[Rfam]
RNA sequence: UGGCGCCCAACGGUGAGGCUUGGAUAUGGGGGAAUUCACGAGGGAAGAGGCGUUUAAUGGUUCAGCCAAACAACGCAGAAAUCAGUUCAAGAAGGAUCGCCACAGGAGCCUGCCGUGCCGCUCUUAAAGGUACAGUAGUGCCUAACUAUGGGACAAGAAGUUGGUAAGCAUAAAGUUUUUGUUAAGCAAUUAAAAGAAGAUUUAAAGACACAGGGAGUAAAGGUUAAGAGUAAUGAUCUUUUUAAGUUUUUUGACCUUAUUAAGGACACCUGUCCGU
Numbered sequence: 001u002g003g004c005g006c007c008c009a010a011c012g013g014u015g016a017g018g019c020u021u022g023g024a025u026a027u028g029g030g031g032g033a034a035u036u037c038a039c040g041a042g043g044g045a046a047g048a049g050g051c052g053u054u055u056a057a058u059g060g061u062u063c064a065g066c067c068a069a070a071c072a073a074c075g076c077a078g079a080a081a082u083c084a085g086u087u088c089a090a091g092a093a094g095g096a097u098c099g100c101c102a103c104a105g106g107a108g109c110c111u112g113c114c115g116u117g118c119c120g121c122u123c124u125u126a127a128a129g130g131u132a133c134a135g136u137a138g139u140g141c142c143u144a145a146c147u148a149u150g151g152g153a154c155a156a157g158a159a160g161u162u163g164g165u166a167a168g169c170a171u172a173a174a175g176u177u178u179u180u181g182u183u184a185a186g187c188a189a190u191u192a193a194a195a196g197a198a199g200a201u202u203u204a205a206a207g208a209c210a211c212a213g214g215g216a217g218u219a220a221a222g223g224u225u226a227a228g229a230g231u232a233a234u235g236a237u238c239u240u241u242u243u244a245a246g247u248u249u250u251u252u253g254a255c256c257u258u259a260u261u262a263a264g265g266a267c268a269c270c271u272g273u274c275c276g277u
Stems, first nucleotide, its partner, number of pairs: 006032003013027003037049001039047001082130002086127002096122001098120001101117003105113001136156001138154002141152004161204001163202001165199001211253008221239006262277001264275004
The family of this 277-nucleotide RNA from Sciurus vulgaris is "Mason-Pfizer monkey virus packaging signal". Pairs were carried over by alignment from the consensus structure, which was predicted with PFOLD. It is annotated as a cis-regulatory element. Rfam describes the family as follows. This family represents a group of sequences that are related to the Mason-Pfizer monkey virus (MPMV) packaging signal. The packaging signal is located in the 5' UTR and is required for specific RNA encapsidation. The family has 9 seed sequences and 2,921 matches in Rfam 15.1. The source organism's lineage runs through Eukaryota, Eumetazoa, Craniata, Sciuridae and Sciurus.